Shown here is an 87-nucleotide RNA from Neobacillus mesonae, a member of the family "BsrC". NCBI's taxonomy places the organism under Bacteria, Bacillati, Bacilli, Bacillaceae, Neobacillus. Rfam 15.1 lists 572 matches to the family in 553 species. The 301 nucleotide sequence from Kouji Nakamura has been trimmed to a highly conserved ~85 nucleotide long core to form this family.
[Rfam]
RNA sequence: UAUAACCUAAACGACGUAAGCCCUACCUCUCUUACAUCCUCACGGCUCCGAGGCCGUUCCAGUGUGAAUAAGUCUUUCCGAUAAAAC
Numbered sequence: 001u002a003u004a005a006c007c008u009a010a011a012c013g014a015c016g017u018a019a020g021c022c023c024u025a026c027c028u029c030u031c032u033u034a035c036a037u038c039c040u041c042a043c044g045g046c047u048c049c050g051a052g053g054c055c056g057u058u059c060c061a062g063u064g065u066g067a068a069u070a071a072g073u074c075u076u077u078c079c080g081a082u083a084a085a086a087c
Stems, first nucleotide, its partner, number of pairs: 035066002039062002042057006
Dot-bracket structure: ..................................((..((.((((((....))))))...))..)).....................